[Rfam]
RNA sequence: AUCAACGGUUACAUAAGAUGAAAAACUGUAACUGGGAUUAAAAUGGGAACAUUUGUUAAAAAGAAUAAAUUAAAUAAUAGUUCCAAGUACUUUACAUUUGGAAAAAAAUAAGAUCAUAACUUAAGUGUUA
Numbered sequence: 001a002u003c004a005a006c007g008g009u010u011a012c013a014u015a016a017g018a019u020g021a022a023a024a025a026c027u028g029u030a031a032c033u034g035g036g037a038u039u040a041a042a043a044u045g046g047g048a049a050c051a052u053u054u055g056u057u058a059a060a061a062a063g064a065a066u067a068a069a070u071u072a073a074a075u076a077a078u079a080g081u082u083c084c085a086a087g088u089a090c091u092u093u094a095c096a097u098u099u100g101g102a103a104a105a106a107a108a109u110a111a112g113a114u115c116a117u118a119a120c121u122u123a124a125g126u127g128u129u130a
Base pairs, nucleotide, nucleotide: 006034007033008032009031010030011029012028013027037122043117044116045115046114051066052065053064054063081102083101084100085099086098087097088096

The record is a 130-nucleotide RNA from Anaerococcus lactolyticus, which matches "Streptococcus sRNA SpR18" in Rfam. Pairs were carried over by alignment from the consensus structure, which was predicted with mfold. It is annotated as a small RNA.